[Rfam]
RNA sequence: UGAAGUAGACACGGGAGCCCGGAGCACCGGGCUGAGAGGGAGGCUGGGGCGCCUCCGACCGUCCGAACCUGAUCCGGGUCAUGCCGGCGAAGGGAGUGCAGGAACAGUGACG
Numbered sequence: 001u002g003a004a005g006u007a008g009a010c011a012c013g014g015g016a017g018c019c020c021g022g023a024g025c026a027c028c029g030g031g032c033u034g035a036g037a038g039g040g041a042g043g044c045u046g047g048g049g050c051g052c053c054u055c056c057g058a059c060c061g062u063c064c065g066a067a068c069c070u071g072a073u074c075c076g077g078g079u080c081a082u083g084c085c086g087g088c089g090a091a092g093g094g095a096g097u098g099c100a101g102g103a104a105c106a107g108u109g110a111c112g
Stems, first nucleotide, its partner, number of pairs: 006100001009097002011062004017032005039056005068093003074087004

TPP riboswitch aptamer (THI element): a 112-nucleotide sequence from Streptacidiphilus fuscans. From the family's description: Vitamin B(1) in its active form thiamin pyrophosphate (TPP) is an essential coenzyme that is synthesised by coupling of pyrimidine and thiazole moieties in bacteria. The base pairs follow the family's consensus structure, which is taken from published work.